[Rfam]
RNA sequence: UUACGUUCCCUGCUGUGAGAACUGAAUUCCAUAGAUGGUGGCAUUUUCAGGUGUCAUCUAUGGGCUCAGUUCUUUUGGCGUGGUUCUGGUUU
Numbered sequence: 001u002u003a004c005g006u007u008c009c010c011u012g013c014u015g016u017g018a019g020a021a022c023u024g025a026a027u028u029c030c031a032u033a034g035a036u037g038g039u040g041g042c043a044u045u046u047u048c049a050g051g052u053g054u055c056a057u058c059u060a061u062g063g064g065c066u067c068a069g070u071u072c073u074u075u076u077g078g079c080g081u082g083g084u085u086c087u088g089g090u091u092u
Stems, first nucleotide, its partner, number of pairs: 008083002011080003018073008033059004
RNA: mir-146 microRNA precursor family
Organism: Nothobranchius furzeri